Description: The record is a 358-nucleotide sequence from a Clostridia bacterium, which matches "Bacterial RNase P class A" in Rfam. It is annotated as a ribozyme. Gene Ontology terms of the family: tRNA processing, dimeric ribonuclease P complex and ribonuclease P activity.
RNA sequence: CGAGCAAGCCAGAUGGUUGCGUGUGCAGUAUCGAAAGGUCGCAUACGAGGAAAGUCCGAGCUCCAUAGGGCAGGGUGCCGGGUAACUCCCGGUGGAGGCGACUCCAAGGAAAGUGCAACAGAGAUAUACCGCCUAAAUUCAUUUAUGAAUUUAGGUAAGGGUGGAAAGGCGAGGUAAGAGCUCACCAGCGAUUUGGCGACUUAUCGGCUAUGUAAACCCCACUCGGAGCAACACCGAAAAGAGGAGAUUUAGAUCGGCCCGAUUUUCUCCCGGGUAGGUGGCUAAAGUGAUGCAGUAAUGUAUCGCGUAGAUAGAUGACCAUCUAAUACAGAACUCGGCUUACAGACUUGCUCGCAAA
Numbered sequence: 001c002g003a004g005c006a007a008g009c010c011a012g013a014u015g016g017u018u019g020c021g022u023g024u025g026c027a028g029u030a031u032c033g034a035a036a037g038g039u040c041g042c043a044u045a046c047g048a049g050g051a052a053a054g055u056c057c058g059a060g061c062u063c064c065a066u067a068g069g070g071c072a073g074g075g076u077g078c079c080g081g082g083u084a085a086c087u088c089c090c091g092g093u094g095g096a097g098g099c100g101a102c103u104c105c106a107a108g109g110a111a112a113g114u115g116c117a118a119c120a121g122a123g124a125u126a127u128a129c130c131g132c133c134u135a136a137a138u139u140c141a142u143u144u145a146u147g148a149a150u151u152u153a154g155g156u157a158a159g160g161g162u163g164g165a166a167a168g169g170c171g172a173g174g175u176a177a178g179a180g181c182u183c184a185c186c187a188g189c190g191a192u193u194u195g196g197c198g199a200c201u202u203a204u205c206g207g208c209u210a211u212g213u214a215a216a217c218c219c220c221a222c223u224c225g226g227a228g229c230a231a232c233a234c235c236g237a238a239a240a241g242a243g244g245a246g247a248u249u250u251a252g253a254u255c256g257g258c259c260c261g262a263u264u265u266u267c268u269c270c271c272g273g274g275u276a277g278g279u280g281g282c283u284a285a286a287g288u289g290a291u292g293c294a295g296u297a298a299u300g301u302a303u304c305g306c307g308u309a310g311a312u313a314g315a316u317g318a319c320c321a322u323c324u325a326a327u328a329c330a331g332a333a334c335u336c337g338g339c340u341u342a343c344a345g346a347c348u349u350g351c352u353c354g355c356a357a358a
Stems, first nucleotide, its partner, number of pairs: 001354008010345001012323007020047007028039001052341003056338005061228004068260004073224005078092005093107001094105004108219002113217002115213003129160002131156011168186002171183003188208001189206004195200001232280004243270005251265005287306008